Shown here is a 208-nucleotide sequence from Firmicutes bacterium CAG:176, a member of the family "glmS glucosamine-6-phosphate activated ribozyme aptamer". Rfam describes the family as follows. This entry contains a glucosamine-6-phosphate activated ribozyme that is found in the mRNA for GlmS. GlmS is an enzyme that uses fructose-6-phosphate and glutamine to generate glucosamine-6-phosphate. Taxonomically the source falls in Bacillota (Bacteria, Bacillati). It is annotated as a riboswitch. The base pairs follow the family's consensus structure, which is taken from published work.
RNA sequence: AGGCCGACAUAAGCGCCAGCGCUCAUACAGCCGACGGAUGUUUCCCGCCGGCUUGUCGCUGCUCUUUUUGAAGGCGGCGGCGAACAUGAGACGACGAGGCGGAGAGUGAUCGAAGUAUUCGGCGGAUGCUCUCCCGUGCCGUCCGGGUGCGUACACAGUCAGCAAAUAUGCGGGUGACCGCAAAACAGAGAGGCUGUGACCGGAUGUG
Numbered sequence: 001a002g003g004c005c006g007a008c009a010u011a012a013g014c015g016c017c018a019g020c021g022c023u024c025a026u027a028c029a030g031c032c033g034a035c036g037g038a039u040g041u042u043u044c045c046c047g048c049c050g051g052c053u054u055g056u057c058g059c060u061g062c063u064c065u066u067u068u069u070g071a072a073g074g075c076g077g078c079g080g081c082g083a084a085c086a087u088g089a090g091a092c093g094a095c096g097a098g099g100c101g102g103a104g105a106g107u108g109a110u111c112g113a114a115g116u117a118u119u120c121g122g123c124g125g126a127u128g129c130u131c132u133c134c135c136g137u138g139c140c141g142u143c144c145g146g147g148u149g150c151g152u153a154c155a156c157a158g159u160c161a162g163c164a165a166a167u168a169u170g171c172g173g174g175u176g177a178c179c180g181c182a183a184a185a186c187a188g189a190g191a192g193g194c195u196g197u198g199a200c201c202g203g204a205u206g207u208g
Stems, first nucleotide, its partner, number of pairs: 022090005101134005110122004135151006154198007169182005